[Rfam]
RNA sequence: AUGCGGGUCCUGUACGACGGGGCCUCUGCGAACCAGGUCAGGUGGGGAACCAAGCAGCCUUAAGUGGUGUGCCCGGUGCGUUUCAGUCAGCCUGCAUCCG
Numbered sequence: 001a002u003g004c005g006g007g008u009c010c011u012g013u014a015c016g017a018c019g020g021g022g023c024c025u026c027u028g029c030g031a032a033c034c035a036g037g038u039c040a041g042g043u044g045g046g047g048a049a050c051c052a053a054g055c056a057g058c059c060u061u062a063a064g065u066g067g068u069g070u071g072c073c074c075g076g077u078g079c080g081u082u083u084c085a086g087u088c089a090g091c092c093u094g095c096a097u098c099c100g
Stems, first nucleotide, its partner, number of pairs: 004094005010086003014082001015078001017077002020074003024069001026067004035060004043052003
Bacterial small signal recognition particle RNA: a 100-nucleotide RNA sequence from Faecalibacterium gallinarum. The family is grouped with related families in Rfam's "SRP clan". Pairs were carried over by alignment from the consensus structure, which is taken from published work.